[Rfam]
RNA sequence: GGGUGCUUGAUCCUUUUUGGUUCAAGCAUGCAGUCUGGGCCAAAAAUGAGAAAGCCCCGUUAGUGAAUAUGUUCAACCAACGGGGCACACAUCUCAAACCCAAACAUUUGAGAUUGUGCCUCUUAGCCAAUAAGAGGUCAAGGAGAAAUGACCAAGUACG
Number, nucleotide and partner (000 for none) at each position: 001g058002g057003g056004u000005g055006c054007u053008u052009g000010a000011u049012c048013c000014u046015u045016u044017u043018u042019g041020g040021u039022u038023c037024a000025a000026g034027c033028a000029u000030g000031c000032a000033g027034u026035c000036u000037g023038g022039g021040c020041c019042a018043a017044a016045a015046a014047u000048g012049a011050g000051a000052a008053a007054g006055c005056c003057c002058c001059g081060u080061u079062a000063g000064u075065g074066a073067a072068u000069a000070u000071g000072u067073u066074c065075a064076a000077c000078c000079a061080a060081c059082g122083g121084g120085g119086c118087a000088c000089a000090c000091a114092u113093c112094u111095c110096a109097a108098a107099c000100c000101c000102a000103a000104a000105c000106a000107u098108u097109u096110g095111a094112g093113a092114u091115u000116g000117u000118g086119c085120c084121u083122c082123u000124u000125a000126g152127c000128c150129a000130a000131u147132a000133a000134g000135a000136g000137g000138u000139c000140a000141a000142g000143g000144a000145g000146a000147a131148a000149u000150g128151a000152c126153c000154a000155a000156g000157u000158a000159c000160g000
This 160-nucleotide RNA from Providencia stuartii belongs to the Rfam family "sok antitoxin (CssrC)". The family has 91 seed sequences and 305 matches in Rfam 15.1. Gene Ontology term of the family: mRNA binding. Also identified in Shigella as CssrC. Rfam classes the family as an antitoxin RNA. A reference for the family is Peng et al. (2011), "An integrated approach for finding overlooked genes in Shigella", PLoS One.